RNA: Small nucleolar RNA SNORD82
RNA sequence: AGUGCAAAGGAUGAACGACAAUGGGACUUAAUACUGAAACCUGAUGUUGACAGUGCAGUAAACUGAUGUGC
Numbered sequence: 001a002g003u004g005c006a007a008a009g010g011a012u013g014a015a016c017g018a019c020a021a022u023g024g025g026a027c028u029u030a031a032u033a034c035u036g037a038a039a040c041c042u043g044a045u046g047u048u049g050a051c052a053g054u055g056c057a058g059u060a061a062a063c064u065g066a067u068g069u070g071c
Stems, first nucleotide, its partner, number of pairs: 002071005
Dot-bracket structure: .(((((............................................................)))))